RNA sequence: GCGCCAGUUUAGCUGAGCGGUUACUUCGUGUUGCAACUAUCGGGAGGUUCCCGGGUUUUCUGGUUCAGACCACCGGCGCUGUCUGGCGGUUUU
Numbered sequence: 001g002c003g004c005c006a007g008u009u010u011a012g013c014u015g016a017g018c019g020g021u022u023a024c025u026u027c028g029u030g031u032u033g034c035a036a037c038u039a040u041c042g043g044g045a046g047g048u049u050c051c052c053g054g055g056u057u058u059u060c061u062g063g064u065u066c067a068g069a070c071c072a073c074c075g076g077c078g079c080u081g082u083c084u085g086g087c088g089g090u091u092u093u
Base pairs, nucleotide, nucleotide: 002088003087004086005085006084007083012077013076014075015074017073019071020070025069026068028066
Dot-bracket structure: .((((((....((((.(.((....((.(.....................................).)))).))))).....)))))).....

The family of this 93-nucleotide RNA sequence from Clarias magur is "Vault RNA". By type it is a non-coding RNA gene. A reference for the family is Stadler et al. (2009), "Evolution of Vault RNAs", Mol Biol Evol. Taxonomically the source falls in Clarias (Eukaryota, Craniata, Osteoglossocephalai, Characiphysae). The match comes from Rfam's covariance-model search (52 bits).